[Rfam]
RNA sequence: UCGGUUCCGGUUCACGCUCGUCGCGAGUUCGCGUGGGCGACCCGGCGGCC
Numbered sequence: 001u002c003g004g005u006u007c008c009g010g011u012u013c014a015c016g017c018u019c020g021u022c023g024c025g026a027g028u029u030c031g032c033g034u035g036g037g038c039g040a041c042c043c044g045g046c047g048g049c050c
Stems, first nucleotide, its partner, number of pairs: 003050003007045004015039006022033004
This 50-nucleotide sequence from Nocardia pneumoniae belongs to the Rfam family "L31-Actinobacteria ribosomal protein leader". Taxonomically the source falls in Nocardia pneumoniae (Bacteria, Bacillati, Actinomycetota, Actinomycetes). Rfam's curators put it in the seed alignment.